[Rfam]
RNA sequence: AGCAGAGUAAAUAUUGUGCAUUAAGUGUUAGAGAAUGGGAGGUUGUCUCUAAACGAAAAGCAGCUGGGCUUAUGAUGCAAUAUUGCUUCCACUGUU
Numbered sequence: 001a002g003c004a005g006a007g008u009a010a011a012u013a014u015u016g017u018g019c020a021u022u023a024a025g026u027g028u029u030a031g032a033g034a035a036u037g038g039g040a041g042g043u044u045g046u047c048u049c050u051a052a053a054c055g056a057a058a059a060g061c062a063g064c065u066g067g068g069c070u071u072a073u074g075a076u077g078c079a080a081u082a083u084u085g086c087u088u089c090c091a092c093u094g095u096u
Base pairs, nucleotide, nucleotide: 001096002095003094004093005092010084011083012082013081014080015079016078017077018076019074020073021072025054026053028052029051030050031049032048033047034046038090039089040088041087042086058071059070060069061068
Notes: Rfam assigns this 96-nucleotide RNA sequence from Clostridium carboxidivorans to the family "THF (Tetrahydrofolate) riboswitch aptamer". From the family's description: Tetrahydrofolate (THF) riboswitch was first reported for Ames et al. as an RNA motif in 5' untranslated (5'-UTR)regions of folate transport and biosynthesis genes in Firmicutes genomes. A search with the family's covariance model found it, with a score of 78 bits.